[Rfam]
RNA sequence: UGGCCGCAGAUUAAGUUAUUCCGUAGUCACUUUGAGUUAUGAUAAUUACUAUACUAAUUUACAAGAUUAUGGUAACUCCCUCAUAAGUGAUUUACUAUAGCAUUGCGGUAGGUAUCAUCUUGAAUUACGGUAACCCAUGUAUCAUAAAUUUGUAUUGUCAUUAUCGUAAAUUGAUAUAAACAUUAUCGUAAAUUAAGAUGACCAUAAAAUAAAUUAUUCUUCGGCUU
Numbered sequence: 001u002g003g004c005c006g007c008a009g010a011u012u013a014a015g016u017u018a019u020u021c022c023g024u025a026g027u028c029a030c031u032u033u034g035a036g037u038u039a040u041g042a043u044a045a046u047u048a049c050u051a052u053a054c055u056a057a058u059u060u061a062c063a064a065g066a067u068u069a070u071g072g073u074a075a076c077u078c079c080c081u082c083a084u085a086a087g088u089g090a091u092u093u094a095c096u097a098u099a100g101c102a103u104u105g106c107g108g109u110a111g112g113u114a115u116c117a118u119c120u121u122g123a124a125u126u127a128c129g130g131u132a133a134c135c136c137a138u139g140u141a142u143c144a145u146a147a148a149u150u151u152g153u154a155u156u157g158u159c160a161u162u163a164u165c166g167u168a169a170a171u172u173g174a175u176a177u178a179a180a181c182a183u184u185a186u187c188g189u190a191a192a193u194u195a196a197g198a199u200g201a202c203c204a205u206a207a208a209a210u211a212a213a214u215u216a217u218u219c220u221u222c223g224g225c226u227u
Base pairs, nucleotide, nucleotide: 002226003225004224005223006222008220009219010218012216013215014214016212017211018210019209020208023205024204026202027201028200029199031197032196033195037191038190039189040188041187042186043185044184045183046182050178051177052176053175055173056172057171058170059169060168061167062166065165066164067163069161070160071159074155081146087142088141089140092137093132094131095130096129098127099126100125103122108116